[Rfam]
RNA sequence: GUUCGCGCUCGCCGGGCUACCUCCUCCCAAGCCCGAACAGCGUGCGACCCGGCGAAGUUACCUCCUCCCAACUUCGCCACGUCAAAACGACGCCUGCCAGUACCUCCUCCCACUGGCAGGCGUUCGUU
Numbered sequence: 001g002u003u004c005g006c007g008c009u010c011g012c013c014g015g016g017c018u019a020c021c022u023c024c025u026c027c028c029a030a031g032c033c034c035g036a037a038c039a040g041c042g043u044g045c046g047a048c049c050c051g052g053c054g055a056a057g058u059u060a061c062c063u064c065c066u067c068c069c070a071a072c073u074u075c076g077c078c079a080c081g082u083c084a085a086a087a088c089g090a091c092g093c094c095u096g097c098c099a100g101u102a103c104c105u106c107c108u109c110c111c112a113c114u115g116g117c118a119g120g121c122g123u124u125c126g127u128u
Base pairs, nucleotide, nucleotide: 007041008040009039013035014034015033016032017031048081051078052077053076054075055074056073057072090123091122092121093120094119095118096117097116098115099114100113
RNA: Alphaproteobacterial ar14
Organism: Roseibium hamelinense